The family of this 53-nucleotide RNA sequence from a halophilic archaeon is "leuA-Halobacteria RNA".
RNA sequence: GAGUCCGGAGGAUAGAGGAAGCCGUCGGUCGGCGGCUGAUCGAGAAAUUCUCC
Numbered sequence: 001g002a003g004u005c006c007g008g009a010g011g012a013u014a015g016a017g018g019a020a021g022c023c024g025u026c027g028g029u030c031g032g033c034g035g036c037u038g039a040u041c042g043a044g045a046a047a048u049u050c051u052c053c
Stems, first nucleotide, its partner, number of pairs: 020037007
Rfam classes the family as a cis-regulatory element.